[Rfam]
RNA sequence: GCUGGUACAAUGAUGAAUAUUUGCCGUUUACCCAACUGAAUCAUUCAGUGAUGACAAUUUCUAAGCCUGAGAUGCCAGC
Dot-bracket structure: (((((((.................................................................)))))))
This 79-nucleotide sequence from Geotrypetes seraphini belongs to the Rfam family "Small nucleolar RNA SNORD87". Rfam 15.1 lists 539 matches to the family in 430 species. Pairs were carried over by alignment from the consensus structure. It is annotated as a C/D-box small nucleolar RNA. The organism belongs to Geotrypetes, within Eukaryota. A reference for the family is Gogolevskaya et al. (2002), "U87 RNA, a novel C/D box small nucleolar RNA from mammalian cells", Gene. Gene Ontology terms of the family: nucleolus and RNA processing.